RNA sequence: UAAUGCCUUUGGUAUCUGAUGUCCAAAGUUAAAUAGUAGUUGGACAUUUCGUAAUUCAAGGCAUAAAUUGAAUACUAAAACAGGUUUUGCGACACUGAUUGCUUCCUCAUAAUAAGCUUUCUGUUACUGUACCCCUGUUUACAUUG
Numbered sequence: 001u002a003a004u005g006c007c008u009u010u011g012g013u014a015u016c017u018g019a020u021g022u023c024c025a026a027a028g029u030u031a032a033a034u035a036g037u038a039g040u041u042g043g044a045c046a047u048u049u050c051g052u053a054a055u056u057c058a059a060g061g062c063a064u065a066a067a068u069u070g071a072a073u074a075c076u077a078a079a080a081c082a083g084g085u086u087u088u089g090c091g092a093c094a095c096u097g098a099u100u101g102c103u104u105c106c107u108c109a110u111a112a113u114a115a116g117c118u119u120u121c122u123g124u125u126a127c128u129g130u131a132c133c134c135c136u137g138u139u140u141a142c143a144u145u146g
Stems, first nucleotide, its partner, number of pairs: 004063006018048009079139005094124002097121002101117003
Small nucleolar RNA F1/F2/snoR5a: a 146-nucleotide RNA from Brassica carinata.
By type it is an H/ACA-box small nucleolar RNA.
Gene Ontology terms of the family: nucleolus and RNA processing.
This family contains F1, F2 and snoR5a sequences, all of which are members of the the H/ACA class of snoRNA that guide the sites of modification of uridines to pseudouridines.